[Rfam]
RNA sequence: CCUGGAUAAAGGCAAACCUGUUGAAAAACAGGGACGCAAAACCUACGGACCUAAGGUAAAAUUUAACUAUGGUGGCCGGGUUGCCGGA
Number, nucleotide and partner (000 for none) at each position: 001c000002c000003u000004g000005g000006a000007u000008a000009a000010a000011g000012g037013c036014a000015a000016a000017c032018c031019u030020g029021u028022u027023g000024a000025a000026a000027a022028a021029c020030a019031g018032g017033g000034a000035c000036g013037c012038a000039a000040a082041a081042c080043c079044u000045a000046c078047g077048g076049a073050c072051c071052u000053a000054a000055g000056g067057u066058a000059a064060a000061a000062u000063u000064u059065a000066a057067c056068u000069a000070u000071g051072g050073u049074g000075g000076c048077c047078g046079g043080g042081u041082u040083g000084c000085c000086g000087g000088a000
Rfam assigns this 88-nucleotide RNA from Melghiribacillus thermohalophilus to the family "c-di-GMP-I riboswitch aptamer". Lineage of the source: Bacteria > Bacillota > Caryophanales > Bacillaceae > Melghiribacillus. It scores 83 bits against the family's covariance model.